[Rfam]
This 111-nucleotide sequence belongs to the Rfam family "drum RNA". Rfam's curators put it in the seed alignment. Rfam describes the family as follows. Firmicutes, Bacteroidetes (1 example), Proteobacteria (2 examples), Spirochaetes (2 examples). Pairs were carried over by alignment from the consensus structure, which is taken from published work.
RNA sequence: UAGCGUUGAAGCAAGUGAUGGGGUCAGCAUCCGUACACUUGCGGAGCUUGACUAAGGGUUAUGCGGUUCCCACAGGCUGACGUAGGAGAAAUCCGAAAGAAAACGCUAACA
Number, nucleotide and partner (000 for none) at each position: 001u000002a048003g047004c046005g000006u000007u000008g000009a000010a000011g042012c041013a040014a039015g038016u037017g036018a034019u033020g032021g031022g000023g000024u080025c079026a078027g077028c000029a000030u000031c021032c020033g019034u018035a000036c017037a016038c015039u014040u013041g012042c011043g000044g000045a000046g004047c003048u002049u000050g000051a000052c000053u000054a000055a000056g000057g000058g000059u000060u000061a000062u000063g106064c105065g104066g000067u000068u000069c000070c000071c000072a000073c000074a000075g000076g000077c027078u026079g025080a024081c000082g000083u000084a000085g094086g093087a092088g000089a000090a000091a000092u087093c086094c085095g000096a000097a000098a000099g000100a000101a000102a000103a000104c065105g064106c063107u000108a000109a000110c000111a000